The family of this 78-nucleotide sequence from Neosynechococcus sphagnicola is "Cyano-1 RNA". It is annotated as a small RNA. Rfam 15.1 lists 283 matches to the family in 194 species. Taxonomically the source falls in Neosynechococcus sphagnicola (Bacteria, Bacillati, Cyanobacteriota, Cyanophyceae). The match comes from Rfam's covariance-model search (45 bits).

[Rfam]
RNA sequence: UGACAGGUGAGGAGUAAGAAUAGAACUUAAAAGCCCUUGGAGUCGAAACACGGAAAGACGCCCAAGGGCUUUUAAUAU
Numbered sequence: 001u002g003a004c005a006g007g008u009g010a011g012g013a014g015u016a017a018g019a020a021u022a023g024a025a026c027u028u029a030a031a032a033g034c035c036c037u038u039g040g041a042g043u044c045g046a047a048a049c050a051c052g053g054a055a056a057g058a059c060g061c062c063c064a065a066g067g068g069c070u071u072u073u074a075a076u077a078u
Base pairs, nucleotide, nucleotide: 015074029073030072031071032070033069034068035067039063040062042059043058044057